This 84-nucleotide RNA sequence belongs to the Rfam family "freshwater-2 RNA". By type it is a cis-regulatory element.
RNA sequence: UGUGCCGCAAGGCGGACUUAUGCUGUCCCAACAGCGUACCGGAUAGAACCCGGAUAGGACUACUUUUAUAGGAGAAAAAAAAUG
Numbered sequence: 001u002g003u004g005c006c007g008c009a010a011g012g013c014g015g016a017c018u019u020a021u022g023c024u025g026u027c028c029c030a031a032c033a034g035c036g037u038a039c040c041g042g043a044u045a046g047a048a049c050c051c052g053g054a055u056a057g058g059a060c061u062a063c064u065u066u067u068a069u070a071g072g073a074g075a076a077a078a079a080a081a082a083u084g
Base pairs, nucleotide, nucleotide: 001016003014004013005012006011019038020037021036022035023034024033025032039053040052041051042050
Dot-bracket structure: (.((((....)))).)..(((((((......)))))))((((.......))))...............................